[Rfam]
RNA sequence: ACGCCCGUCUAUUGGGGAGUAGCCAGUUUUCUGCAAAGAAAAUGUGCGCGUCAACAUACUCGUUGCUUAUCAACGUGGCGCGUACGGUUCGGAUAAGCAUUCGGGCAGGCGAGACCGUGGGCACGUCGACUGCUGAUACUGGGGGCAGCGUCGUGUCAUAGGGUUUUCCCGGUCAGA
Number, nucleotide and partner (000 for none) at each position: 001a000002c000003g000004c000005c000006c000007g000008u000009c000010u000011a000012u000013u000014g000015g000016g000017g000018a000019g000020u000021a000022g000023c000024c000025a000026g000027u042028u041029u040030u000031c000032u000033g000034c000035a000036a000037a000038g000039a000040a029041a028042a027043u000044g085045u084046g083047c082048g081049c080050g079051u078052c077053a076054a000055c000056a000057u000058a000059c000060u000061c075062g074063u073064u072065g071066c000067u000068u000069a000070u000071c065072a064073a063074c062075g061076u053077g052078g051079c050080g049081c048082g047083u046084a045085c044086g000087g000088u000089u000090c000091g000092g000093a000094u000095a000096a000097g000098c000099a000100u000101u000102c000103g000104g000105g000106c000107a000108g000109g000110c000111g000112a000113g000114a000115c000116c000117g000118u000119g000120g000121g000122c000123a000124c000125g000126u000127c000128g000129a000130c000131u000132g000133c000134u000135g000136a000137u000138a000139c000140u000141g000142g000143g000144g000145g000146c000147a000148g000149c000150g000151u000152c000153g000154u000155g000156u000157c000158a000159u000160a000161g000162g000163g000164u000165u000166u000167u000168c000169c000170c000171g000172g000173u000174c000175a000176g000177a000
The record is a 177-nucleotide sequence from Tenebrionibacter intestinalis, which matches "Manganese Mn2+ riboswitch aptamer (yybP-ykoY)" in Rfam. The base pairs follow the family's consensus structure. The source organism's lineage runs through Bacteria, Pseudomonadati, Gammaproteobacteria, Enterobacteriaceae and Tenebrionibacter. On this family, see Dambach et al., Mol Cell 2015: "The ubiquitous yybP-ykoY riboswitch is a manganese-responsive regulatory element". Rfam describes the family as follows. This RNA was originally discovered in E. coli during a large scale screen and was named SraF. The family was later found to exist upstream of related families of protein genes in many bacteria, including the the yybP and ykoK genes in B. subtilis. The specific functions of these proteins are unknown, but this structured RNA element may be involved in their genetic regulation as a riboswitch.